[Rfam]
RNA sequence: UAAUAAACAACAGAAGGGAUGAUGGGUGGCCGAUGUUAAACUAAUCUUAUUUUUAAAAGUUUGAAAUGAAAAUAUUUCAAAUCAUACAAAAUAGGAUUAGUCUGCCCAUUUUUCAUAUAUAACUUGAGCUAUUAGUGAAUAGCUUUAUUUGAGUACACAAAAAUGCGACUAAUCCUUCCAACAAAAUUGGGAGGAUUUUUUA
Numbered sequence: 001u002a003a004u005a006a007a008c009a010a011c012a013g014a015a016g017g018g019a020u021g022a023u024g025g026g027u028g029g030c031c032g033a034u035g036u037u038a039a040a041c042u043a044a045u046c047u048u049a050u051u052u053u054u055a056a057a058a059g060u061u062u063g064a065a066a067u068g069a070a071a072a073u074a075u076u077u078c079a080a081a082u083c084a085u086a087c088a089a090a091a092u093a094g095g096a097u098u099a100g101u102c103u104g105c106c107c108a109u110u111u112u113u114c115a116u117a118u119a120u121a122a123c124u125u126g127a128g129c130u131a132u133u134a135g136u137g138a139a140u141a142g143c144u145u146u147a148u149u150u151g152a153g154u155a156c157a158c159a160a161a162a163a164u165g166c167g168a169c170u171a172a173u174c175c176u177u178c179c180a181a182c183a184a185a186a187u188u189g190g191g192a193g194g195a196u197u198u199u200u201u202a
Base pairs, nucleotide, nucleotide: 016114017113018112019111023108024107025106026105029102031100042099043098044097045096046095047094048093049092050091051090052089053088059082060081061080062079063078064077065076066075067074120151121150122149127144128143129142130141131140132139133138171197172196173195174194175193176192177191178190179189180188181187
A member of the RNA family "Bacillus sRNA ncr1575" from Schinkia azotoformans, 202 nucleotides long. Rfam classes the family as a small RNA. A reference for the family is Irnov et al. (2010), "Identification of regulatory RNAs in Bacillus subtilis", Nucleic Acids Res. NCBI's taxonomy places the organism under Bacteria, Bacillota, Bacilli, Bacillaceae, Schinkia azotoformans.